[Rfam]
Description:
Shown here is an 85-nucleotide RNA from Lactuca sativa, a member of the family "small nucleolar RNA snoR114". Rfam links the family to the GO terms nucleolus and RNA processing. Pairs were carried over by alignment from the consensus structure, which was predicted with RNAalifold. For this family Rfam cites "Mining small RNA sequencing data: a new approach to identify small nucleolar RNAs in Arabidopsis" (Chen and Wu, Nucleic Acids Res, 2009). It is annotated as a C/D-box small nucleolar RNA.
RNA sequence: AUGCAAUGAUGAGUUAUUUGUGCUACUUGUGAUGUUGGUUCAUCACAGCAUUUCGAUAAUUCGAAUUAGAAGCGCAUCUGAGCAU
Number, nucleotide and partner (000 for none) at each position: 001a085002u084003g083004c082005a000006a000007u000008g000009a000010u000011g000012a000013g000014u000015u000016a000017u000018u000019u000020g000021u000022g000023c000024u000025a000026c000027u000028u000029g000030u000031g000032a000033u000034g000035u000036u000037g000038g000039u000040u000041c000042a000043u000044c000045a000046c000047a000048g000049c000050a000051u000052u000053u000054c000055g000056a000057u000058a000059a000060u000061u000062c000063g000064a000065a000066u000067u000068a000069g000070a000071a000072g000073c000074g000075c000076a000077u000078c000079u000080g000081a000082g004083c003084a002085u001